[Rfam]
RNA sequence: GGGGCGUUAGUUAAAUGGAUAUAACUUACCGCUACGGACGGUACAUUAUGGGUUCGAUUCCUAUACGCCCUA
Numbered sequence: 001g002g003g004g005c006g007u008u009a010g011u012u013a014a015a016u017g018g019a020u021a022u023a024a025c026u027u028a029c030c031g032c033u034a035c036g037g038a039c040g041g042u043a044c045a046u047u048a049u050g051g052g053u054u055c056g057a058u059u060c061c062u063a064u065a066c067g068c069c070c071u072a
Base pairs, nucleotide, nucleotide: 001071002070003069004068005067006066007065010025011024012023013022027043028042029041030040031039048064049063050062051061052060
About this RNA:
The record is a 72-nucleotide RNA from Clostridium thermobutyricum, which matches "tRNA" in Rfam. Transfer RNA (tRNA) molecules are approximately 80 nucleotides in length. Pairs were carried over by alignment from the consensus structure, which is taken from published work. NCBI's taxonomy places the organism under Bacteria, Bacillati, Bacillota, Eubacteriales, Clostridium. Rfam classes the family as a transfer RNA. Gene Ontology term of the family: triplet codon-amino acid adaptor activity.